[Rfam]
RNA sequence: AGUGCGUGUUGACGGUUUUUCCUCCUCCCAAACCGUCAACGACAUAGAUGCAGCGAACUCCUCCUCCUAAAUCGCUGCAUUUCAGAUCAAGCCCGCCAACCUCCUCCCUGGCGGGCUUUUUCU
Numbered sequence: 001a002g003u004g005c006g007u008g009u010u011g012a013c014g015g016u017u018u019u020u021c022c023u024c025c026u027c028c029c030a031a032a033c034c035g036u037c038a039a040c041g042a043c044a045u046a047g048a049u050g051c052a053g054c055g056a057a058c059u060c061c062u063c064c065u066c067c068u069a070a071a072u073c074g075c076u077g078c079a080u081u082u083c084a085g086a087u088c089a090a091g092c093c094c095g096c097c098a099a100c101c102u103c104c105u106c107c108c109u110g111g112c113g114g115g116c117u118u119u120u121u122c123u
Base pairs, nucleotide, nucleotide: 007041008040009039011037012036013035014034015033016032017031047081048080049079050078051077052076053075054074055073056072089118090117091116092115093114094113095112096111097110
Shown here is a 123-nucleotide RNA from Nitratireductor aestuarii, a member of the family "Alphaproteobacterial ar14". From the family's description: Smr14C2 was renamed NfeR1 (Nodule Formation Efficiency RNA) highly expressed in salt stress and during the symbiotic interaction on legume roots. A reference for the family is Robledo et al. (2017), "A conserved alpha-proteobacterial small RNA contributes to osmoadaptation and symbiotic efficiency of rhizobia on legume roots", Environ Microbiol. Taxonomically the source falls in Nitratireductor (Bacteria, Pseudomonadati, Pseudomonadota, Phyllobacteriaceae). Pairs were carried over by alignment from the consensus structure.